This 426-nucleotide part of an RNA from Metschnikowia sp. JCM 33374 belongs to the Rfam family "Archaeal large subunit ribosomal RNA". The source organism's lineage runs through Eukaryota, Fungi, saccharomyceta, Pichiomycetes and Metschnikowia. It scores 1535 bits against the family's covariance model.
[Rfam]
RNA sequence: GGUAGUAGCAAAUAUUCAAAUGAGAACUUUGAAGACUGAAGUGGGGAAAGGUUCCAUGUCAACAGCAGAUGAACAUGGGUUAGUCGAUCCUAACCUCUAAGUUAAACCUGAUUUAACUCACCAAUUCUGGUGGUCGAGGGAAAGGGAAUUUGGUUAAUAUUCCAAAACUUGGAUAUGGAGUUCACGGUAACGUAACUGAAUGUGGAGACGUCGGCGUGGGCCCUGGAAGAAGUUUUCUUUUUUCUUCUAACAGUUUAUGACCCUGGAUGGAUUAACCAGAGAUGGGGUUUUAUGACUGGAAGAGCAACCUUCGGGUUGUCCGGUGCGCCUACGACGGUCCUUGAAAAUCCACAGGAAGGAUUUACUUUCAUGCCAAGUCGUACUGAUAACCGCAGCAGGUCUCCAAGGUUAACAGCCUCUAGUUGA
Numbered sequence: 001g002g003u004a005g006u007a008g009c010a011a012a013u014a015u016u017c018a019a020a021u022g023a024g025a026a027c028u029u030u031g032a033a034g035a036c037u038g039a040a041g042u043g044g045g046g047a048a049a050g051g052u053u054c055c056a057u058g059u060c061a062a063c064a065g066c067a068g069a070u071g072a073a074c075a076u077g078g079g080u081u082a083g084u085c086g087a088u089c090c091u092a093a094c095c096u097c098u099a100a101g102u103u104a105a106a107c108c109u110g111a112u113u114u115a116a117c118u119c120a121c122c123a124a125u126u127c128u129g130g131u132g133g134u135c136g137a138g139g140g141a142a143a144g145g146g147a148a149u150u151u152g153g154u155u156a157a158u159a160u161u162c163c164a165a166a167a168c169u170u171g172g173a174u175a176u177g178g179a180g181u182u183c184a185c186g187g188u189a190a191c192g193u194a195a196c197u198g199a200a201u202g203u204g205g206a207g208a209c210g211u212c213g214g215c216g217u218g219g220g221c222c223c224u225g226g227a228a229g230a231a232g233u234u235u236u237c238u239u240u241u242u243u244c245u246u247c248u249a250a251c252a253g254u255u256u257a258u259g260a261c262c263c264u265g266g267a268u269g270g271a272u273u274a275a276c277c278a279g280a281g282a283u284g285g286g287g288u289u290u291u292a293u294g295a296c297u298g299g300a301a302g303a304g305c306a307a308c309c310u311u312c313g314g315g316u317u318g319u320c321c322g323g324u325g326c327g328c329c330u331a332c333g334a335c336g337g338u339c340c341u342u343g344a345a346a347a348u349c350c351a352c353a354g355g356a357a358g359g360a361u362u363u364a365c366u367u368u369c370a371u372g373c374c375a376a377g378u379c380g381u382a383c384u385g386a387u388a389a390c391c392g393c394a395g396c397a398g399g400u401c402u403c404c405a406a407g408g409u410u411a412a413c414a415g416c417c418u419c420u421a422g423u424u425g426a
Stems, first nucleotide, its partner, number of pairs: 015033006034424004043404004049384002054078006063071002085380003089145002094139004099134001101131004149166005169376004174372004204350003210338004215333004221325001223323003226247006251298004260288006268280001269277002308313001390399002406418003